[Rfam]
RNA sequence: CGAGUCGGCUGGGCGGCCGCGUCGACGCCUUCCGGGGCGUCGCCGAGGAACGUCCGGACUCCGCAGAGCAGGGUGGUUGUUAACGGCAACCCGGGGCGACCCGCGGGAAAGUGCCACAGAAAACAGACCGCCCUCCCUUCGGGGAGGGUAAGGGUGAAACGGUGAGGUAAGAGCUCACCAGCACCCCGGGUGACCGGGGUGGCUCGGUAAACCCCACCCGGAGCAAGGCCAAGCAAGGCCGGCGCCGCAAGGCACCGGCCGGCGCAGGCGUUCGAGGGCUGCUCGCCCGAGCCUGCGGGUAGGCUGCUCGAGCCUGCCGGCAACGGCAGGCCUAGAUGGAUGGCCGCCACCGGUGACUCACACCGGCCACAGAAUCCGGCGUACAGGCCGGCUCGUCCG
Numbered sequence: 001c002g003a004g005u006c007g008g009c010u011g012g013g014c015g016g017c018c019g020c021g022u023c024g025a026c027g028c029c030u031u032c033c034g035g036g037g038c039g040u041c042g043c044c045g046a047g048g049a050a051c052g053u054c055c056g057g058a059c060u061c062c063g064c065a066g067a068g069c070a071g072g073g074u075g076g077u078u079g080u081u082a083a084c085g086g087c088a089a090c091c092c093g094g095g096g097c098g099a100c101c102c103g104c105g106g107g108a109a110a111g112u113g114c115c116a117c118a119g120a121a122a123a124c125a126g127a128c129c130g131c132c133c134u135c136c137c138u139u140c141g142g143g144g145a146g147g148g149u150a151a152g153g154g155u156g157a158a159a160c161g162g163u164g165a166g167g168u169a170a171g172a173g174c175u176c177a178c179c180a181g182c183a184c185c186c187c188g189g190g191u192g193a194c195c196g197g198g199g200u201g202g203c204u205c206g207g208u209a210a211a212c213c214c215c216a217c218c219c220g221g222a223g224c225a226a227g228g229c230c231a232a233g234c235a236a237g238g239c240c241g242g243c244g245c246c247g248c249a250a251g252g253c254a255c256c257g258g259c260c261g262g263c264g265c266a267g268g269c270g271u272u273c274g275a276g277g278g279c280u281g282c283u284c285g286c287c288c289g290a291g292c293c294u295g296c297g298g299g300u301a302g303g304c305u306g307c308u309c310g311a312g313c314c315u316g317c318c319g320g321c322a323a324c325g326g327c328a329g330g331c332c333u334a335g336a337u338g339g340a341u342g343g344c345c346g347c348c349a350c351c352g353g354u355g356a357c358u359c360a361c362a363c364c365g366g367c368c369a370c371a372g373a374a375u376c377c378g379g380c381g382u383a384c385a386g387g388c389c390g391g392c393u394c395g396u397c398c399g
Stems, first nucleotide, its partner, number of pairs: 001395010011384001012348007020045002023042006050382003054379005059223004066284004071219005076090005091105001092103004106214002111212002113208003128153002130149008161179006181203001182201008227305004238296002241293003276288004312331008
Shown here is a 399-nucleotide RNA from Actinoplanes utahensis, a member of the family "Bacterial RNase P class A". The source organism's lineage runs through Bacteria, Actinomycetota, Actinomycetes, Micromonosporaceae and Actinoplanes. The family's consensus secondary structure is taken from published work.